Overview: The record is a 64-nucleotide sequence from Octodon degus, which matches "Selenocysteine insertion sequence 1" in Rfam.
[Rfam]
RNA sequence: UUCACUGCAUGAUCUACUCUGACUAAACCCUCCUAGGCCAGUCAGGGUGGUGAUGAUCUGUGAC
Number, nucleotide and partner (000 for none) at each position: 001u000002u063003c062004a061005c060006u000007g000008c000009a000010u000011g000012a000013u000014c050015u049016a048017c047018u046019c045020u044021g043022a042023c041024u000025a000026a000027a000028c000029c037030c036031u035032c000033c000034u000035a031036g030037g029038c000039c000040a000041g023042u022043c021044a020045g019046g018047g017048u016049g015050g014051u000052g000053a000054u000055g000056a000057u000058c000059u000060g005061u004062g003063a002064c000

Taxonomically the source falls in Octodon (Eukaryota, Tetrapoda, Mammalia, Glires).